RNA sequence: UAGGAGUAACCCGAAAAGCCUUUAAUAGAGUAGGGA
Dot-bracket structure: .(((.....[[[......)))...........]]].
Shown here is a 36-nucleotide sequence, a member of the family "DUF805b RNA". Clan: DUF805 clan. Rfam classes the family as a cis-regulatory element.